[Rfam]
RNA sequence: ACGCGCGAAAGGAGGUGGUCCAAGAAAUGGUUGAUUCUGGGACUCGCGAGGUGGCUGUCCGCUAGUCGCCGUUCCGCCUCGUAGCCGCCUCCGGGCGGUGAGCCGGUCGGUGACCGGCACUACCAGGCAGUUACCCGAUCCCCGGACCGGUGGACCAGUCCUGUCCACCGCCCCGUCACCCGGCGGGAAGGUCCGGGGAUCGUCUCAU
Dot-bracket structure: .............((((((..................................)))))).(((.((.((((..(((...........................))).)))).)).))).................(((((((((((((.((((((.......)))))).....................)))))))))))))......
Actinobacteria sRNA Ms_IGR-5: a 208-nucleotide sequence from Actinomadura viridis. The match comes from Rfam's covariance-model search (98 bits). Lineage of the source: Bacteria > Bacillati > Actinomycetes > Streptosporangiales > Actinomadura. Rfam classes the family as a small RNA.